Bacillaceae-1 RNA: a 67-nucleotide RNA from Falsibacillus albus. Lineage of the source: Bacteria > Bacillota > Caryophanales > Bacillaceae > Falsibacillus. Rfam classes the family as a small RNA.

RNA sequence: UCGGGCAGAUGUUCGAUUAAGUUCGGCUCCUCGUGUGCCAACAUCGAACGACCUCACUUCCUGUGAG
Numbered sequence: 001u002c003g004g005g006c007a008g009a010u011g012u013u014c015g016a017u018u019a020a021g022u023u024c025g026g027c028u029c030c031u032c033g034u035g036u037g038c039c040a041a042c043a044u045c046g047a048a049c050g051a052c053c054u055c056a057c058u059u060c061c062u063g064u065g066a067g
Base pairs, nucleotide, nucleotide: 011049012048013047014046015045016044017043025039026038027037029035053067054066055065056064057063